[Rfam]
RNA: Cyanobacterial functional RNA 17
RNA sequence: AAAAACAGAUUUGAUCUUAUCGUUCCUUAAAAAAUUCUGCGUGACAUAUUUUACAAAAAAAACUUAUAUUUUAUUUCGCUCAUAGAAAAGUGAAUUAAAUCUACAAGCUGUGGAAAAACCUGUUGAAAAAGCCUCAAAAAGUGGAUAACUCUUUGGGAUCAAGGUAAAAACUGGGUUUUAAUGCUUAUUUUCUAAGUAUUAAUACUUCAUCAAUAAAUUAUUAAAUAUAGUUUAAUAAUCAAUUAAACUAACUGAAAUAACAAUG
Numbered sequence: 001a002a003a004a005a006c007a008g009a010u011u012u013g014a015u016c017u018u019a020u021c022g023u024u025c026c027u028u029a030a031a032a033a034a035u036u037c038u039g040c041g042u043g044a045c046a047u048a049u050u051u052u053a054c055a056a057a058a059a060a061a062a063c064u065u066a067u068a069u070u071u072u073a074u075u076u077c078g079c080u081c082a083u084a085g086a087a088a089a090g091u092g093a094a095u096u097a098a099a100u101c102u103a104c105a106a107g108c109u110g111u112g113g114a115a116a117a118a119c120c121u122g123u124u125g126a127a128a129a130a131g132c133c134u135c136a137a138a139a140a141g142u143g144g145a146u147a148a149c150u151c152u153u154u155g156g157g158a159u160c161a162a163g164g165u166a167a168a169a170a171c172u173g174g175g176u177u178u179u180a181a182u183g184c185u186u187a188u189u190u191u192c193u194a195a196g197u198a199u200u201a202a203u204a205c206u207u208c209a210u211c212a213a214u215a216a217a218u219u220a221u222u223a224a225a226u227a228u229a230g231u232u233u234a235a236u237a238a239u240c241a242a243u244u245a246a247a248c249u250a251a252c253u254g255a256a257a258u259a260a261c262a263a264u265g
Stems, first nucleotide, its partner, number of pairs: 007177002010174002013171001017167005022159005031150001036145005047130001049128004053123003070099004075094005100114005178257002183252001188246002193241001195239001197237006204231003209226002